The family of this 102-nucleotide sequence from Saccharibacillus brassicae is "Purine riboswitch aptamer". Its Rfam clan is "Purine riboswitches".
RNA sequence: UUGAAAGCAAUUGAACCACACCGUAUAAAGCCGGGGAUAAGGCCCGGCAGUAUCUACCCGGGAACCGUAAAUCCCCGGACUACGGAUCAAACGACUGUCCUU
Numbered sequence: 001u002u003g004a005a006a007g008c009a010a011u012u013g014a015a016c017c018a019c020a021c022c023g024u025a026u027a028a029a030g031c032c033g034g035g036g037a038u039a040a041g042g043c044c045c046g047g048c049a050g051u052a053u054c055u056a057c058c059c060g061g062g063a064a065c066c067g068u069a070a071a072u073c074c075c076c077g078g079a080c081u082a083c084g085g086a087u088c089a090a091a092c093g094a095c096u097g098u099c100c101u102u
Base pairs, nucleotide, nucleotide: 021085022084023083024082025081030048031047032046033045034044035043058078059077060076061075062074064072